RNA sequence: UCGGUCCCGGUUCACCCCACAGCAGUGGAGACCCGGCGGCC
Numbered sequence: 001u002c003g004g005u006c007c008c009g010g011u012u013c014a015c016c017c018c019a020c021a022g023c024a025g026u027g028g029a030g031a032c033c034c035g036g037c038g039g040c041c
Base pairs, nucleotide, nucleotide: 003041004040005039007036008035009034010033015030017028018027019026020025

Overview
Shown here is a 41-nucleotide RNA from Catenulispora acidiphila, a member of the family "L31-Actinobacteria ribosomal protein leader". The sequence is in the family's curated seed alignment.